[Rfam]
RNA sequence: GGGUCAAUGAUGACAACCGAAUUCAAGAACAGAAUGAUGACAGAAAAAUCAUGCUCAAUAGGACUACACUGAGGCCC
Numbered sequence: 001g002g003g004u005c006a007a008u009g010a011u012g013a014c015a016a017c018c019g020a021a022u023u024c025a026a027g028a029a030c031a032g033a034a035u036g037a038u039g040a041c042a043g044a045a046a047a048a049u050c051a052u053g054c055u056c057a058a059u060a061g062g063a064c065u066a067c068a069c070u071g072a073g074g075c076c077c
Stems, first nucleotide, its partner, number of pairs: 001077004005071002008068002

The record is a 77-nucleotide RNA from Rattus norvegicus, which matches "Small nucleolar RNA SNORD115" in Rfam. Lineage of the source: Eukaryota > Euteleostomi > Myomorpha > Muroidea > Rattus. It is annotated as a C/D-box small nucleolar RNA. The family's consensus secondary structure was predicted with PFOLD. For this family Rfam cites "Identification of brain-specific and imprinted small nucleolar RNA genes exhibiting an unusual genomic organization" (Cavaille et al., Proc Natl Acad Sci U S A, 2000). Its family is annotated with RNA processing and nucleolus in the Gene Ontology.